Background
Rfam assigns this 263-nucleotide RNA from Dorea longicatena to the family "Bacterial large signal recognition particle RNA". Gene Ontology terms of the family: signal recognition particle, plasma membrane targeting and SRP-dependent cotranslational protein targeting to membrane, signal sequence recognition. The family's consensus secondary structure is taken from published work. A reference for the family is Rosenblad et al. (2003), "SRPDB: Signal Recognition Particle Database", Nucleic Acids Res. A search with the family's covariance model found it, with a score of 186 bits.

RNA sequence: CUGUGCAGCCGGGGUGUUAGCGGUACCUUGCACCUGCAAUCCGCUAUAGCAGGGGUGAUAUUGCGCAGAGGGCUUGUUUUUGCAGAGCUGCCCUUGGAAAGUGACGUUGAUGUUUGGGUCUUACGCGACGGGACUCCAUGAACCGUGUCAGGUCAGGAAUGAAGCAGCACUAAGUGGAACCUCUCGGGUGCCGUAAGGGUGCCUGGGCUGAGUUAACUACCAAGGUAACGUCUGUGAAGGCUCGUUCGAAGCGCAAUGCACAU
Numbered sequence: 001c002u003g004u005g006c007a008g009c010c011g012g013g014g015u016g017u018u019a020g021c022g023g024u025a026c027c028u029u030g031c032a033c034c035u036g037c038a039a040u041c042c043g044c045u046a047u048a049g050c051a052g053g054g055g056u057g058a059u060a061u062u063g064c065g066c067a068g069a070g071g072g073c074u075u076g077u078u079u080u081u082g083c084a085g086a087g088c089u090g091c092c093c094u095u096g097g098a099a100a101g102u103g104a105c106g107u108u109g110a111u112g113u114u115u116g117g118g119u120c121u122u123a124c125g126c127g128a129c130g131g132g133a134c135u136c137c138a139u140g141a142a143c144c145g146u147g148u149c150a151g152g153u154c155a156g157g158a159a160u161g162a163a164g165c166a167g168c169a170c171u172a173a174g175u176g177g178a179a180c181c182u183c184u185c186g187g188g189u190g191c192c193g194u195a196a197g198g199g200u201g202c203c204u205g206g207g208c209u210g211a212g213u214u215a216a217c218u219a220c221c222a223a224g225g226u227a228a229c230g231u232c233u234g235u236g237a238a239g240g241c242u243c244g245u246u247c248g249a250a251g252c253g254c255a256a257u258g259c260a261c262a263u
Base pairs, nucleotide, nucleotide: 002262003261004260005259006258007257008056009055010054011029012028013027014026015025016024017023018022033053034052035051036050037049061256062255063254064253065252066251070247071246072245073244076241077240078239079238080237081236082235083234084233085232089227090226093224094223095222096221097220101217102216103214104213105212112208113207114206115205116204117203118202119201120197121196122195123194124193125192126188129186130185131184132183133182135178136177137176138175139174145170146169147168148167153162154161155160